[Rfam]
RNA: mir-36 microRNA precursor family
Organism: Caenorhabditis briggsae
RNA sequence: UCUAACGGUCUGGUUCGGACCUCAGCCAAUUUUUUCCGUGGUGAUAUUCCGAAACAAGUGGUUAUCACCGGGUAAAAACUGGUAGAGGUCCAAAUCAAUGAG
Numbered sequence: 001u002c003u004a005a006c007g008g009u010c011u012g013g014u015u016c017g018g019a020c021c022u023c024a025g026c027c028a029a030u031u032u033u034u035u036c037c038g039u040g041g042u043g044a045u046a047u048u049c050c051g052a053a054a055c056a057a058g059u060g061g062u063u064a065u066c067a068c069c070g071g072g073u074a075a076a077a078a079c080u081g082g083u084a085g086a087g088g089u090c091c092a093a094a095u096c097a098a099u100g101a102g
Base pairs, nucleotide, nucleotide: 017091018090019089020088021087022086025083026082027081028080030078031077032076033075034074036072037071039070041068042067043066044065045064046063